[Rfam]
RNA sequence: UCGCGGGACACCUCUCCCCACCGAGGGGCGCCCAUCUGUAAGGAUGGAUAAC
Numbered sequence: 001u002c003g004c005g006g007g008a009c010a011c012c013u014c015u016c017c018c019c020a021c022c023g024a025g026g027g028g029c030g031c032c033c034a035u036c037u038g039u040a041a042g043g044a045u046g047g048a049u050a051a052c
Base pairs, nucleotide, nucleotide: 011028012027013026014025015024016023032047033046034045035044036043037042
RNA: serC leader
Organism: Microvirga alba